[Rfam]
RNA sequence: CGUGCAAGUGAUGACAAAAUAGACAGGGACAUCAGAACUCCUUGGAGAAUGAUGACUUCGUCUUUGGGAAUCUCUCUGAUGCACU
Numbered sequence: 001c002g003u004g005c006a007a008g009u010g011a012u013g014a015c016a017a018a019a020u021a022g023a024c025a026g027g028g029a030c031a032u033c034a035g036a037a038c039u040c041c042u043u044g045g046a047g048a049a050u051g052a053u054g055a056c057u058u059c060g061u062c063u064u065u066g067g068g069a070a071u072c073u074c075u076c077u078g079a080u081g082c083a084c085u
Stems, first nucleotide, its partner, number of pairs: 002084005
The family of this 85-nucleotide RNA from Macleaya cordata is "Small nucleolar RNA R44/J54/Z268 family".
The family's consensus secondary structure was predicted with PFOLD.
NCBI's taxonomy places the organism under Eukaryota, Viridiplantae, Streptophyta, Mesangiospermae, Macleaya.
Its family is annotated with nucleolus and RNA processing in the Gene Ontology.
It scores 85 bits against the family's covariance model.
The family is grouped with related families in Rfam's "SNORD74 clan".